[Rfam]
RNA sequence: GUCUGUGUCAUUCUUGUGGUUUGCAGCUAGUAGCUUUGAUCCAGUUGCAUAGUCACAAAAAUGAUCAUGGAC
Numbered sequence: 001g002u003c004u005g006u007g008u009c010a011u012u013c014u015u016g017u018g019g020u021u022u023g024c025a026g027c028u029a030g031u032a033g034c035u036u037u038g039a040u041c042c043a044g045u046u047g048c049a050u051a052g053u054c055a056c057a058a059a060a061a062u063g064a065u066c067a068u069g070g071a072c
Stems, first nucleotide, its partner, number of pairs: 002071006008064005014058007022049007
RNA: mir-153 microRNA precursor family
Organism: Anabas testudineus